[Rfam]
RNA sequence: GUUAACAUCUUACCGGGCAGCAUUAGAUAUCAUUAGUACCUCUAAUACUGUCAGGUAAAGAUGUCCUC
Dot-bracket structure: ....((((((((((.(((((.((((((.............)))))).))))).))))).)))))....
Numbered sequence: 001g002u003u004a005a006c007a008u009c010u011u012a013c014c015g016g017g018c019a020g021c022a023u024u025a026g027a028u029a030u031c032a033u034u035a036g037u038a039c040c041u042c043u044a045a046u047a048c049u050g051u052c053a054g055g056u057a058a059a060g061a062u063g064u065c066c067u068c
Stems, first nucleotide, its partner, number of pairs: 005064005010058005016052005022046006

The family of this 68-nucleotide sequence from Ceutorhynchus assimilis is "mir-8/mir-141/mir-200 microRNA precursor family". The family has 164 seed sequences and 2,669 matches in Rfam 15.1. The family's consensus secondary structure was predicted with RNAalifold. Taxonomically the source falls in Ceutorhynchus (Eukaryota, Ecdysozoa, Arthropoda, Ceutorhynchinae). Its family is annotated with RISC complex and miRNA-mediated post-transcriptional gene silencing in the Gene Ontology. It scores 65 bits against the family's covariance model.